[Rfam]
RNA sequence: UACUCUCCGUGUUCACUGUUUGCCUUCAUGUAGAGCUUUGAUUUAUCAUAAGGCACGCGGUGAAUGCCAAGAGU
Numbered sequence: 001u002a003c004u005c006u007c008c009g010u011g012u013u014c015a016c017u018g019u020u021u022g023c024c025u026u027c028a029u030g031u032a033g034a035g036c037u038u039u040g041a042u043u044u045a046u047c048a049u050a051a052g053g054c055a056c057g058c059g060g061u062g063a064a065u066g067c068c069a070a071g072a073g074u
Stems, first nucleotide, its partner, number of pairs: 003073004009067008018058002023053003028049003
RNA: mir-124 microRNA precursor family
Organism: Tetranychus urticae